[Rfam]
RNA sequence: AAUGGUCCUCGGUAGUGGUUUCCGCAGAGCGCGAUUAAAUUCGCUUGCGUUGCGUGAACUUCGAUCGAAGAUUCAUU
Numbered sequence: 001a002a003u004g005g006u007c008c009u010c011g012g013u014a015g016u017g018g019u020u021u022c023c024g025c026a027g028a029g030c031g032c033g034a035u036u037a038a039a040u041u042c043g044c045u046u047g048c049g050u051u052g053c054g055u056g057a058a059c060u061u062c063g064a065u066c067g068a069a070g071a072u073u074c075a076u077u
Stems, first nucleotide, its partner, number of pairs: 001077004005072003009068005017060005023054004029050006
Actino-pnp RNA: a 77-nucleotide sequence. It is one of the family's seed sequences.